[Rfam]
A member of the RNA family "MIR5272 microRNA precursor family" from Medicago truncatula, 74 nucleotides long. Its family is annotated with RISC complex and miRNA-mediated post-transcriptional gene silencing in the Gene Ontology.
RNA sequence: UUGGAUGUAAAUUAAUUUAUGUUUGGAUAUACCCACUUAAAGAUAAUUCUUAUAAGUUGAUUUUGUUUGAAUAA
Numbered sequence: 001u002u003g004g005a006u007g008u009a010a011a012u013u014a015a016u017u018u019a020u021g022u023u024u025g026g027a028u029a030u031a032c033c034c035a036c037u038u039a040a041a042g043a044u045a046a047u048u049c050u051u052a053u054a055a056g057u058u059g060a061u062u063u064u065g066u067u068u069g070a071a072u073a074a
Base pairs, nucleotide, nucleotide: 011061012060013059014058015057016056017055018054021053022052025049026048027047028046030045031044033042
Pairs were carried over by alignment from the consensus structure, which was predicted with RNAalifold.
The family has 6 seed sequences and 271 matches in Rfam 15.1.
NCBI's taxonomy places the organism under Eukaryota, Streptophyta, Embryophyta, eudicotyledons, Medicago.
It scores 72 bits against the family's covariance model.